[Rfam]
Nucleotides: 124
Stems, first nucleotide, its partner, number of pairs: 001124019021104001023102001025100003029096011041084002045080004
Number, partner (000 for none) and nucleotide at each position: 001124a002123a003122u004121a005120g006119u007118u008117u009116a010115a011114u012113g013112u014111c015110a016109c017108a018107u019106c020000u021104a022000c023102a024000g025100u026099u027098u028000c029096a030095u031094c032093c033092u034091g035090a036089a037088u038087u039086u040000c041084a042083g043000g044000a045080u046079u047078u048077u049000c050000a051000u052000u053000u054000g055000g056000a057000u058000g059000u060000g061000a062000u063000u064000u065000u066000u067000u068000u069000u070000c071000a072000a073000g074000a075000u076000g077048a078047a079046a080045a081000u082000a083042u084041u085000g086039a087038a088037a089036u090035u091034c092033a093032g094031g095030a096029u097000g098027a099026a100025a101000a102023u103000a104021u105000c106019g107018a108017u109016g110015u111014g112013g113012c114011a115010u116009u117008a118007a119006a120005u121004u122003a123002u124001u